The family of this 123-nucleotide RNA from Peptococcaceae bacterium SCADC1_2_3 is "Molybdenum/Tungsten riboswitch aptamer (Moco RNA motif)".
Gene Ontology terms of the family: regulation of gene expression, molybdenum ion binding and tungstate binding.

RNA sequence: AUUUACAGACUGCUCCGAGCUUAUUAUCCUAAAACGAAAAAACGUCACGGAAAUAAGCCGAUAGGGUAGUUUUGGAAACGAAACUGCCUCCCUUAUUUGGAAAGGAGUAGGAAAUGAUUCAGU
Numbered sequence: 001a002u003u004u005a006c007a008g009a010c011u012g013c014u015c016c017g018a019g020c021u022u023a024u025u026a027u028c029c030u031a032a033a034a035c036g037a038a039a040a041a042a043c044g045u046c047a048c049g050g051a052a053a054u055a056a057g058c059c060g061a062u063a064g065g066g067u068a069g070u071u072u073u074g075g076a077a078a079c080g081a082a083a084c085u086g087c088c089u090c091c092c093u094u095a096u097u098u099g100g101a102a103a104g105g106a107g108u109a110g111g112a113a114a115u116g117a118u119u120c121a122g123u
Stems, first nucleotide, its partner, number of pairs: 003117002011109006019058007027051003034045003064089011090100002